The family of this 358-nucleotide part of an RNA from Halostella sp. JP-L12 is "Archaeal large subunit ribosomal RNA". Gene Ontology terms of the family: ribosome and structural constituent of ribosome. A search with the family's covariance model found it, with a score of 2843 bits. Taxonomically the source falls in Halostella (Archaea, Methanobacteriota, Halobacteria, Natronoarchaeaceae). Pairs were carried over by alignment from the consensus structure, which is taken from published work.
Nucleotides: 358
Stems, first nucleotide, its partner, number of pairs: 001325004010320008019311003036060005045050001061082009083087001095304007102296002106120003123158008131148001135144003161291004166221003171218002173214005180209003188201004222240006241245001261277006339356005
Number, partner (000 for none) and nucleotide at each position: 001325c002324g003323g004322g005000a006000g007000c008000a009000a010320c011319c012318g013317a014316c015315g016314u017313u018000a019311g020310g021309g022000a023000a024000u025000u026000c027000g028000g029000c030000a031000a032000g033000c034000u035000a036060g037059u038058c039057c040056c041000g042000u043000a044000c045050g046000u047000u048000c049000g050045c051000a052000a053000u054000a055000a056040g057039g058038g059037a060036u061082g062081c063080c064079u065078g066077c067076c068075u069074c070000c071000g072000a073000c074069g075068a076067g077066g078065c079064a080063g081062g082061u083087c084000g085000c086000a087083g088000u089000g090000a091000c092000u093000c094000g095304g096303a097302c098301g099300c100299u101298c102296c103295g104000a105000c106120u107119g108118u109000c110000u111000a112000g113000u114000a115000a116000c117000a118108a119107c120106a121000u122000a123158g124157g125156u126155g127154a128153c129152c130151g131148c132000a133000a134000a135144u136143c137142c138000g139000u140000a141000a142137g143136g144135a145000c146000u147000c148131g149000u150000a151130c152129g153128g154127u155126c156125a157124c158123u159000g160000a161291a162290u163289c164288c165000u166221g167220c168219c169000c170000a171218g172217u173214g174213c175212g176211g177210g178000u179000a180209u181208c182207u183000g184000a185000a186000c187000a188201c189200c190199c191198a192000g193000u194000a195000c196000a197000a198191u199190g200189g201188g202000g203000c204000g205000a206000a207182g208181g209180a210177c211176c212175c213174g214173u215000u216000a217172a218171c219168g220167g221166c222240g223239g224238g225237g226236g227235u228000a229000a230000c231000u232000a233000u234000g235227a236226c237225c238224c239223u240222c241245u242000u243000a244000a245241g246000g247000u248000a249000g250000c251000g252000u253000a254000g255000u256000a257000c258000c259000u260000u261277g262276c263275c264274g265273c266272u267000u268000c269000a270000g271000u272266a273265g274264c275263g276262g277261c278000u279000u280000g281000c282000a283000u284000g285000a286000a287000u288164g289163g290162a291161u292000c293000a294000a295103c296102g297000a298101g299100a300099g301098c302097g303096u304095c305000a306000c307000u308000g309021u310020c311019c312000c313017a314016a315015c316014g317013u318012u319011g320010g321000g322004c323003c324002c325001g326000g327000u328000g329000a330000a331000c332000u333000g334000u335000a336000c337000g338000u339356u340355c341354c342353a343352g344000u345000g346000c347000g348000g349000a350000g351000u352343c353342u354341g355340g356339a357000g358000a